[Rfam]
The family of this 88-nucleotide sequence from Nodularia spumigena is "Photosynthesis regulatory RNA1". By type it is a small RNA.

RNA sequence: UAAAAAUUAGCUUUUUUGUAUUGUUGUAUCUAAAUCGUCAUUCUUACUUCUCCUAAUCAGAGACCUCAGUUGCCAAGCUGAGGUUUUU
Numbered sequence: 001u002a003a004a005a006a007u008u009a010g011c012u013u014u015u016u017u018g019u020a021u022u023g024u025u026g027u028a029u030c031u032a033a034a035u036c037g038u039c040a041u042u043c044u045u046a047c048u049u050c051u052c053c054u055a056a057u058c059a060g061a062g063a064c065c066u067c068a069g070u071u072g073c074c075a076a077g078c079u080g081a082g083g084u085u086u087u088u
Stems, first nucleotide, its partner, number of pairs: 059084001064083007
Dot-bracket structure: ..........................................................(....(((((((......))))))))....

The match comes from Rfam's covariance-model search (43 bits). A reference for the family is Georg et al. (2014), "The small regulatory RNA SyR1/PsrR1 controls photosynthetic functions in cyanobacteria", Plant Cell. From the family's description: Formerly known as Syr1 discovered in Synechocystis sp PCC 6803, is a regulatory factor controlling photosynthetic functions. PsrR1 interacts with the ribosome binding regions of several photosynthesis-related mRNAs. In particular, psaL mRNA is processed by RNase E only in the presence of PsrR1. The organism belongs to Nodularia spumigena, within Bacteria. Pairs were carried over by alignment from the consensus structure, which was predicted with CMfinder.